[Rfam]
Shown here is a 125-nucleotide RNA from Myxococcus xanthus, a member of the family "SAM-I/IV (S-adenosyl methionine) riboswitch aptamer". The sequence is in the family's curated seed alignment. Taxonomically the source falls in Myxococcus xanthus (Bacteria, Myxococcota, Myxococcales, Myxococcaceae). A reference for the family is Weinberg et al. (2008), "The aptamer core of SAM-IV riboswitches mimics the ligand-binding site of SAM-I riboswitches", RNA.
RNA sequence: GCGCAGCAUCAAGAGCGGCCGCCGCCUCGCGCGGUGGCCCGACAACCUGGAGUCGGACCUCCAAGGUGUCCAAACGAUGCGGUUCGAGGAGCAGGGGCUCCCCGAGCAAUCCAAGCGUCCGAAGC
Numbered sequence: 001g002c003g004c005a006g007c008a009u010c011a012a013g014a015g016c017g018g019c020c021g022c023c024g025c026c027u028c029g030c031g032c033g034g035u036g037g038c039c040c041g042a043c044a045a046c047c048u049g050g051a052g053u054c055g056g057a058c059c060u061c062c063a064a065g066g067u068g069u070c071c072a073a074a075c076g077a078u079g080c081g082g083u084u085c086g087a088g089g090a091g092c093a094g095g096g097g098c099u100c101c102c103c104g105a106g107c108a109a110u111c112c113a114a115g116c117g118u119c120c121g122a123a124g125c
Stems, first nucleotide, its partner, number of pairs: 006080005015040001017039009041070003046066003049062003055119002082107004